Source information
This 99-nucleotide RNA sequence from Marinococcus luteus belongs to the Rfam family "Guanidine-I riboswitch aptamer". This family represents a conserved RNA structure found upstream of the ykkC and yxkD genes in Bacillus subtilis and related genes in other bacteria. The base pairs follow the family's consensus structure. The organism belongs to Marinococcus, within Bacteria. For this family Rfam cites "New RNA motifs suggest an expanded scope for riboswitches in bacterial genetic control" (Barrick et al., Proc Natl Acad Sci U S A, 2004).

RNA sequence: CAGAAUGUUUUCUAGGGUUCCGCGGCAGCGCCGGCCUGGUCCGAGAGAAAACCCGCGAACGAAUAGUUUGCGCCACGGAGGGAUAAAAACCCGGGAGAU
Numbered sequence: 001c002a003g004a005a006u007g008u009u010u011u012c013u014a015g016g017g018u019u020c021c022g023c024g025g026c027a028g029c030g031c032c033g034g035c036c037u038g039g040u041c042c043g044a045g046a047g048a049a050a051a052c053c054c055g056c057g058a059a060c061g062a063a064u065a066g067u068u069u070g071c072g073c074c075a076c077g078g079a080g081g082g083a084u085a086a087a088a089a090c091c092c093g094g095g096a097g098a099u
Stems, first nucleotide, its partner, number of pairs: 007052006015042002020039002022036001023033004054072007074094001076097001080092003